[Rfam]
This 76-nucleotide RNA sequence from Alligator sinensis belongs to the Rfam family "Mammalian CPEB3 ribozyme". The match comes from Rfam's covariance-model search (40 bits).

RNA sequence: ACUGCAAAUUCAAGGCCAAAGCAGAAGCACUCAUGGUAUGGCCCUGUCAGAUGCCAACAAAUUUGCAAAUUCUGCU
Number, nucleotide and partner (000 for none) at each position: 001a000002c000003u000004g000005c000006a000007a000008a000009u000010u000011c000012a000013a000014g043015g042016c041017c040018a000019a000020a076021g075022c074023a073024g072025a071026a070027g039028c000029a037030c000031u000032c000033a000034u000035g000036g000037u029038a000039u027040g017041g016042c015043c014044c000045u000046g000047u000048c065049a064050g063051a062052u061053g000054c000055c000056a000057a000058c000059a000060a000061a052062u051063u050064u049065g048066c000067a000068a000069a000070u026071u025072c024073u023074g022075c021076u020